[Rfam]
RNA sequence: AUUGACCGAUACCGAUGGCUGGUCACCAACCAGUGGGAUUCUCCUGCAUUGCAGGCGGCUGUACAGAGUACAUCACCGUUCCCCAACACCUCAACACAAUCGCUCUCUGGUGCAAAGGUAUCGUCAA
Numbered sequence: 001a002u003u004g005a006c007c008g009a010u011a012c013c014g015a016u017g018g019c020u021g022g023u024c025a026c027c028a029a030c031c032a033g034u035g036g037g038a039u040u041c042u043c044c045u046g047c048a049u050u051g052c053a054g055g056c057g058g059c060u061g062u063a064c065a066g067a068g069u070a071c072a073u074c075a076c077c078g079u080u081c082c083c084c085a086a087c088a089c090c091u092c093a094a095c096a097c098a099a100u101c102g103c104u105c106u107c108u109g110g111u112g113c114a115a116a117g118g119u120a121u122c123g124u125c126a127a
Base pairs, nucleotide, nucleotide: 002127003126004125005124007123008122009121010120011119012118013117019033020032021031022030023029035083036082037081038080043055044054045053046052047051056078057077058076060072061071062070063069064068
Overview
This 127-nucleotide RNA belongs to the Rfam family "EFASI RNA". Pairs were carried over by alignment from the consensus structure, which is taken from published work.